[Rfam]
RNA sequence: GAAACGCACCAGGGGUGCCUCGACCAAGUGUAGCUGCUCGAUCGGCAGUUAACUGGUCAGGCUGAGAUAGUCCCUUUGAACCUGAACAGGAUAAUGCCUGCGUAGGGAGCGUGCUUUUCUGUUUUU
Numbered sequence: 001g002a003a004a005c006g007c008a009c010c011a012g013g014g015g016u017g018c019c020u021c022g023a024c025c026a027a028g029u030g031u032a033g034c035u036g037c038u039c040g041a042u043c044g045g046c047a048g049u050u051a052a053c054u055g056g057u058c059a060g061g062c063u064g065a066g067a068u069a070g071u072c073c074c075u076u077u078g079a080a081c082c083u084g085a086a087c088a089g090g091a092u093a094a095u096g097c098c099u100g101c102g103u104a105g106g107g108a109g110c111g112u113g114c115u116u117u118u119c120u121g122u123u124u125u126u
Stems, first nucleotide, its partner, number of pairs: 006114004011075004016069001017062004081106004087100004